[Rfam]
RNA sequence: AUAAAAGCGAUGAUAAGAAUAAGUAAUAUUUAGUAAUCCAAACAGAAAGUAACCGGUUGAUGAGAGGUACAUGGCAGGCUGAAUAUGAAUACAUCUUUGAGCUUCACACCGAACAACAAGUAUUAAGUAGGCUGUGACGGAUUCCCGCACACGUUAUAGUGCUAGAGUAUUACCCAUCAUGUAUGGAGUACUUGAAGAGGUAGACAAUGUGAGUUGUCUAUAAACUUAAGGUGGUAACACGAGAUUAUGCUCUCGUCCUUUUG
Numbered sequence: 001a002u003a004a005a006a007g008c009g010a011u012g013a014u015a016a017g018a019a020u021a022a023g024u025a026a027u028a029u030u031u032a033g034u035a036a037u038c039c040a041a042a043c044a045g046a047a048a049g050u051a052a053c054c055g056g057u058u059g060a061u062g063a064g065a066g067g068u069a070c071a072u073g074g075c076a077g078g079c080u081g082a083a084u085a086u087g088a089a090u091a092c093a094u095c096u097u098u099g100a101g102c103u104u105c106a107c108a109c110c111g112a113a114c115a116a117c118a119a120g121u122a123u124u125a126a127g128u129a130g131g132c133u134g135u136g137a138c139g140g141a142u143u144c145c146c147g148c149a150c151a152c153g154u155u156a157u158a159g160u161g162c163u164a165g166a167g168u169a170u171u172a173c174c175c176a177u178c179a180u181g182u183a184u185g186g187a188g189u190a191c192u193u194g195a196a197g198a199g200g201u202a203g204a205c206a207a208u209g210u211g212a213g214u215u216g217u218c219u220a221u222a223a224a225c226u227u228a229a230g231g232u233g234g235u236a237a238c239a240c241g242a243g244a245u246u247a248u249g250c251u252c253u254c255g256u257c258c259u260u261u262u263g
Base pairs, nucleotide, nucleotide: 007102008101015097016096017095018094026086027085028084029083030082031081038074039073040072052068053067054066105136106135107134108133109131110130138153139152200221201220202219203218204217205216206215228260229259230258231257239256240255241254242253243252